[Rfam]
RNA: Saccharopolyspora sRNA 389
RNA sequence: GCGAUGCUGGUGCUGGUGCGGUGCAGGAAGUCGGCGCGGGCGUUGCGAACCUUGCGGUACGCUGCGGCGACCUUGGUCCUGGCCUUGCGAUGGUUGGCCGAGCCGGGUUGCCUGCGGGCCAUGCGCCGCUGGUAGCGGGCCAGGUUCGCGGCUUUGCGCGCCAGAUGGCGCGGGUUGGCGAUGCGGUCUCCGUCGGAGGUCACCGCGAAGUCCUUCACCCCCAGGUCGAUGCCGAUGGCGUGCCCGGCGGCGGGCCUGGGUUCGGGGGUGUCGGUAUCGACGGCGAAGGUCACAUACCAGCGUCCGUCGGGGUCACGCGAGAUAACGACCAUGCUCGGAUUCAGCGAGGCCAGGUCCACCUUCUGGAACGACCACGCGAACUCAAGUGGCGUGGUGGUCUUGGCCAUCUGCAGUUGCCCGCCACGGAUGCGGAAGGCCGAGCGGGUGUAAUGCGCGGCCUGGCGGGAGGUGCGGUUCUUGAACCGCGGGUAGCGGGCGCGUCCGGCGAAGAAUCCGGCGAAGGCCGCGUGCUGGUGCCGCAGCACCUGCUGCAGCGGAACGCUGGACACCUCGUUCAGGAACGCCAGCUCCUGGG
Numbered sequence: 001g002c003g004a005u006g007c008u009g010g011u012g013c014u015g016g017u018g019c020g021g022u023g024c025a026g027g028a029a030g031u032c033g034g035c036g037c038g039g040g041c042g043u044u045g046c047g048a049a050c051c052u053u054g055c056g057g058u059a060c061g062c063u064g065c066g067g068c069g070a071c072c073u074u075g076g077u078c079c080u081g082g083c084c085u086u087g088c089g090a091u092g093g094u095u096g097g098c099c100g101a102g103c104c105g106g107g108u109u110g111c112c113u114g115c116g117g118g119c120c121a122u123g124c125g126c127c128g129c130u131g132g133u134a135g136c137g138g139g140c141c142a143g144g145u146u147c148g149c150g151g152c153u154u155u156g157c158g159c160g161c162c163a164g165a166u167g168g169c170g171c172g173g174g175u176u177g178g179c180g181a182u183g184c185g186g187u188c189u190c191c192g193u194c195g196g197a198g199g200u201c202a203c204c205g206c207g208a209a210g211u212c213c214u215u216c217a218c219c220c221c222c223a224g225g226u227c228g229a230u231g232c233c234g235a236u237g238g239c240g241u242g243c244c245c246g247g248c249g250g251c252g253g254g255c256c257u258g259g260g261u262u263c264g265g266g267g268g269u270g271u272c273g274g275u276a277u278c279g280a281c282g283g284c285g286a287a288g289g290u291c292a293c294a295u296a297c298c299a300g301c302g303u304c305c306g307u308c309g310g311g312g313u314c315a316c317g318c319g320a321g322a323u324a325a326c327g328a329c330c331a332u333g334c335u336c337g338g339a340u341u342c343a344g345c346g347a348g349g350c351c352a353g354g355u356c357c358a359c360c361u362u363c364u365g366g367a368a369c370g371a372c373c374a375c376g377c378g379a380a381c382u383c384a385a386g387u388g389g390c391g392u393g394g395u396g397g398u399c400u401u402g403g404c405c406a407u408c409u410g411c412a413g414u415u416g417c418c419c420g421c422c423a424c425g426g427a428u429g430c431g432g433a434a435g436g437c438c439g440a441g442c443g444g445g446u447g448u449a450a451u452g453c454g455c456g457g458c459c460u461g462g463c464g465g466g467a468g469g470u471g472c473g474g475u476u477c478u479u480g481a482a483c484c485g486c487g488g489g490u491a492g493c494g495g496g497c498g499c500g501u502c503c504g505g506c507g508a509a510g511a512a513u514c515c516g517g518c519g520a521a522g523g524c525c526g527c528g529u530g531c532u533g534g535u536g537c538c539g540c541a542g543c544a545c546c547u548g549c550u551g552c553a554g555c556g557g558a559a560c561g562c563u564g565g566a567c568a569c570c571u572c573g574u575u576c577a578g579g580a581a582c583g584c585c586a587g588c589u590c591c592u593g594g595g
Base pairs, nucleotide, nucleotide: 002016004014017580019578021576025031040068041067044064045062046061047060049058050057051056069146070145071144072143073142075140077138078137082133083132084131087129088128089127091125092124095121096120099116100115102111103110150212151211152210154208155207156206157205158204160200161199162198166197170193171192172191173190177189178188221573223571224570225569226568230267232265233264234263235262236260240256242255243254244253245252269565274560275559277557278556281551282550283549284548285547289543290542295536296535297534298533299532300531301530302529304526306524307523308522310351311350313347314346319341320340323337325335357471358470359469360468361467362465363464364461365460366459372456373454375452376451380446381445382444383443386442387441388438389437390436392434395431397428398427399426400425402422403421404420472516473515474514478512479511486504487503488502489501490500492499493498582595584594585593586592587591
Dot-bracket structure: .(.(.........).)(.(.(...(.....)........((..((((.(((....))).))).)..))(((((.(.((...(((..(((.((..((..((.((......))...))...))..)).))).)))...)).).)))))...(((.(((((.(((...(...((((...((.........))))))...))))...))))).)))........(.((((...(.(((((...(.((((......)))))...).)))).).(....((.((..(((((...((....((((((((.(.(((.((.((....((..(.(.........).)..))....))..)).....((((((((((.....((.((...((((..(((((.(..(.((((.(((...............)))..))))..)..).)))..))))))....)).).)..)))..)).)))))(((...((......(((((.((....)))))))......)).))).....))).)..)))))))).....))...)))))....)).))....)..)))).)..).).).(.((((...)))))